[Rfam]
RNA sequence: GGCGGAGGGAAGCUCAUCAGUGGGGCCACGAGCUGAGUGCGCGUCGUCACUCCCGCCUGUCCCUUGGGAAGGUCUGAGACUAGGGCCACCACCCGCAGCCCUAGCAGGGCUCUCCCUGAGCCCGGGGAGGUGAGUUCCCAGAGAGCAGGGCUCCGCGCGAGGGCAGACUGGGCAGGAGAAGCCGGUGCCUCCGGGCGGUCCGGCGGAUGCCUCCCUAACCGGAGCUUGGAACAGACUCACGGCCAGCCACGCGAGUUCAAUGGCUGAGGUGAGGCAACGAGAGCCUCAUAACCCAAUUCAGACUACUCUCCCCCGCC
Numbered sequence: 001g002g003c004g005g006a007g008g009g010a011a012g013c014u015c016a017u018c019a020g021u022g023g024g025g026c027c028a029c030g031a032g033c034u035g036a037g038u039g040c041g042c043g044u045c046g047u048c049a050c051u052c053c054c055g056c057c058u059g060u061c062c063c064u065u066g067g068g069a070a071g072g073u074c075u076g077a078g079a080c081u082a083g084g085g086c087c088a089c090c091a092c093c094c095g096c097a098g099c100c101c102u103a104g105c106a107g108g109g110c111u112c113u114c115c116c117u118g119a120g121c122c123c124g125g126g127g128a129g130g131u132g133a134g135u136u137c138c139c140a141g142a143g144a145g146c147a148g149g150g151c152u153c154c155g156c157g158c159g160a161g162g163g164c165a166g167a168c169u170g171g172g173c174a175g176g177a178g179a180a181g182c183c184g185g186u187g188c189c190u191c192c193g194g195g196c197g198g199u200c201c202g203g204c205g206g207a208u209g210c211c212u213c214c215c216u217a218a219c220c221g222g223a224g225c226u227u228g229g230a231a232c233a234g235a236c237u238c239a240c241g242g243c244c245a246g247c248c249a250c251g252c253g254a255g256u257u258c259a260a261u262g263g264c265u266g267a268g269g270u271g272a273g274g275c276a277a278c279g280a281g282a283g284c285c286u287c288a289u290a291a292c293c294c295a296a297u298u299c300a301g302a303c304u305a306c307u308c309u310c311c312c313c314c315g316c317c
Stems, first nucleotide, its partner, number of pairs: 001317004008311003013268004018263001022064004035052005040046001074301005084244004097111005112129006130240007150225006269289007
RNA: Nuclear RNase P